Annotation:
The family of this 124-nucleotide sequence from Polaribacter atrinae is "SAM riboswitch aptamer (S box leader)". The family has 457 seed sequences and 9,625 matches in Rfam 15.1. A search with the family's covariance model found it, with a score of 78 bits. The source organism's lineage runs through Bacteria, Pseudomonadati, Flavobacteriales, Flavobacteriaceae and Polaribacter.
RNA sequence: UUGUUAUCAAGAAAGGUUGAGGGAUUAGACCCGAGGAAGCCUUAGCAACCCUUUAUCUUUAAAGAAGGUGCUAAUUUCUACUGAUUCUUUCUGAACUAGGUUCAGAUCUUCAGAGAGAUAACGG
Numbered sequence: 001u002u003g004u005u006a007u008c009a010a011g012a013a014a015g016g017u018u019g020a021g022g023g024a025u026u027a028g029a030c031c032c033g034a035g036g037a038a039g040c041c042u043u044a045g046c047a048a049c050c051c052u053u054u055a056u057c058u059u060u061a062a063a064g065a066a067g068g069u070g071c072u073a074a075u076u077u078c079u080a081c082u083g084a085u086u087c088u089u090u091c092u093g094a095a096c097u098a099g100g101u102u103c104a105g106a107u108c109u110u111c112a113g114a115g116a117g118a119u120a121a122c123g124g
Base pairs, nucleotide, nucleotide: 001124002123003122004121005120006119007118008117013043014042015041016040017039021032022031023030026080027079028078029077044072045071046070047069049068050067051064052063053062054061076116081113082112083111084110